The family of this 100-nucleotide RNA from Nesterenkonia sedimenti is "SAM riboswitch aptamer (S box leader)". Lineage of the source: Bacteria > Actinomycetes > Micrococcales > Micrococcaceae > Nesterenkonia. The SAM riboswitch is found upstream of a number of genes which code for proteins involved in methionine or cysteine biosynthesis in Gram-positive bacteria.
RNA sequence: AGUCCAUCCCGAGCGGCCGAGAGAUCUGGCUUGUUGACGCCGCAGCAACCCGGGGGUGCCGAGUCGUUCUGCCGGGUGCUAACGCCAGGACCGAUGGGAG
Numbered sequence: 001a002g003u004c005c006a007u008c009c010c011g012a013g014c015g016g017c018c019g020a021g022a023g024a025u026c027u028g029g030c031u032u033g034u035u036g037a038c039g040c041c042g043c044a045g046c047a048a049c050c051c052g053g054g055g056g057u058g059c060c061g062a063g064u065c066g067u068u069c070u071g072c073c074g075g076g077u078g079c080u081a082a083c084g085c086c087a088g089g090a091c092c093g094a095u096g097g098g099a100g
Base pairs, nucleotide, nucleotide: 003098004097005096006095007094008093013043014042015041016040017039021032022031023030026088027087028086029085044080045079046078047077049076050075051074052073053072084092